[Rfam]
RNA sequence: AGCCAAGGGACAAACAUAGACAGGGAAUGGGCAGAGCAUGGAUGGAGCUAUCGACGGUAUAGGAACCUGUCGUGGUUCUACUCAUGCACUGCCUCUUCCCUGGCUGUGCCUCUCUUCUUUUU
Numbered sequence: 001a002g003c004c005a006a007g008g009g010a011c012a013a014a015c016a017u018a019g020a021c022a023g024g025g026a027a028u029g030g031g032c033a034g035a036g037c038a039u040g041g042a043u044g045g046a047g048c049u050a051u052c053g054a055c056g057g058u059a060u061a062g063g064a065a066c067c068u069g070u071c072g073u074g075g076u077u078c079u080a081c082u083c084a085u086g087c088a089c090u091g092c093c094u095c096u097u098c099c100c101u102g103g104c105u106g107u108g109c110c111u112c113u114c115u116u117c118u119u120u121u122u
Base pairs, nucleotide, nucleotide: 018105019104021102022101023100024099025098026097027096029094030093031092032091033090034089036087037086038085039084040083041082045078046077
Shown here is a 122-nucleotide RNA sequence from Carpinus fangiana, a member of the family "MIR408 microRNA precursor family".
The literature on the family includes a 2004 paper in Plant Cell by Sunkar and Zhu, "Novel and stress-regulated microRNAs and other small RNAs from Arabidopsis".
Taxonomically the source falls in Carpinus (Eukaryota, Magnoliopsida, Mesangiospermae, eudicotyledons).